[Rfam]
RNA sequence: AAAAGCUUUAAGUCAAUAAAGACUGAGAAGGUUGAGUCAAGAACCAA
Numbered sequence: 001a002a003a004a005g006c007u008u009u010a011a012g013u014c015a016a017u018a019a020a021g022a023c024u025g026a027g028a029a030g031g032u033u034g035a036g037u038c039a040a041g042a043a044c045c046a047a
Stems, first nucleotide, its partner, number of pairs: 007041002011037001013035005